[Rfam]
RNA sequence: CAGUACAUGUCUCAGACCGUGACUGGCUGUGGCCAGGGGAUCCUGGAGUGCAUGCAAGAGCAACCUGGGAGACUGACCACAGGUCAGCACAAGACCUGCAGCUGCCACUUGCCUUUCCUAUAAUG
Numbered sequence: 001c002a003g004u005a006c007a008u009g010u011c012u013c014a015g016a017c018c019g020u021g022a023c024u025g026g027c028u029g030u031g032g033c034c035a036g037g038g039g040a041u042c043c044u045g046g047a048g049u050g051c052a053u054g055c056a057a058g059a060g061c062a063a064c065c066u067g068g069g070a071g072a073c074u075g076a077c078c079a080c081a082g083g084u085c086a087g088c089a090c091a092a093g094a095c096c097u098g099c100a101g102c103u104g105c106c107a108c109u110u111g112c113c114u115u116u117c118c119u120a121u122a123a124u125g
Stems, first nucleotide, its partner, number of pairs: 011038002015034001017032005067118002069115003078104001080098004
This 125-nucleotide RNA from Carlito syrichta belongs to the Rfam family "Small nucleolar RNA SNORA44". ACA44 is a member of the H/ACA class of snoRNA that guide the sites of modification of uridines to pseudouridines. The source organism's lineage runs through Eukaryota, Metazoa, Amniota, Haplorrhini and Carlito. By type it is an H/ACA-box small nucleolar RNA. A reference for the family is Huttenhofer et al. (2001), "RNomics: an experimental approach that identifies 201 candidates for novel, small, non-messenger RNAs in mouse", EMBO J. The match comes from Rfam's covariance-model search (72 bits).